[Rfam]
RNA: mir-160 microRNA precursor family
Organism: Camellia sinensis
RNA sequence: UUGUGCCUGGCUCCCUGUAUGCCACACGAACAAACCAAUCUAUGUGUUGAUUGGUUUGACGAGUGGCGUGCGAGGAGCCAAGCAUGC
Numbered sequence: 001u002u003g004u005g006c007c008u009g010g011c012u013c014c015c016u017g018u019a020u021g022c023c024a025c026a027c028g029a030a031c032a033a034a035c036c037a038a039u040c041u042a043u044g045u046g047u048u049g050a051u052u053g054g055u056u057u058g059a060c061g062a063g064u065g066g067c068g069u070g071c072g073a074g075g076a077g078c079c080a081a082g083c084a085u086g087c
Stems, first nucleotide, its partner, number of pairs: 002086005008080007016072009027061002